[Rfam]
RNA sequence: AAGAGGAGGUGCCAUGUGCCCUGUGGGCACAUAUCGGAAUGCACCGACGAACUGCCGCCGACCGUAAGGGAGGGGGCAAUACAAGAA
Numbered sequence: 001a002a003g004a005g006g007a008g009g010u011g012c013c014a015u016g017u018g019c020c021c022u023g024u025g026g027g028c029a030c031a032u033a034u035c036g037g038a039a040u041g042c043a044c045c046g047a048c049g050a051a052c053u054g055c056c057g058c059c060g061a062c063c064g065u066a067a068g069g070g071a072g073g074g075g076g077c078a079a080u081a082c083a084a085g086a087a
Base pairs, nucleotide, nucleotide: 008045009044010043011042012041015031016030017029018028019027020026054077055076056075058073059072062069063068
Dot-bracket structure: .......(((((..((((((.....)))))).........)))))........(((.((..((....))..)).)))..........
GA-cis RNA: an 87-nucleotide RNA sequence. The base pairs follow the family's consensus structure, which is taken from published work. The family's RNA type in Rfam is small RNA.